[Rfam]
RNA: Tymovirus/Pomovirus/Furovirus tRNA-like 3' UTR element
Nucleotides: 084
Base pairs, nucleotide, nucleotide: 004074005018006017007016008015009014012049020038021037022036023035024034025033043057044056045055046054058072059071060070065080066079067078068077069076
Number, partner (000 for none) and nucleotide at each position: 001000u002000c003000a004074g005018g006017u007016c008015g009014c010000c011000a012049g013000u014009g015008c016007g017006a018005c019000a020038c021037c022036c023035g024034u025033u026000c027000c028000c029000a030000c031000a032000c033025a034024a035023c036022g037021g038020g039000c040000a041000u042000u043057g044056g045055g046054g047000u048000g049012c050000a051000a052000c053000u054046c055045c056044c057043c058072c059071g060070u061000c062000u063000a064000u065080c066079c067078u068077g069076a070060a071059c072058g073000u074004c075000a076069u077068c078067a079066g080065g081000a082000c083000c084000a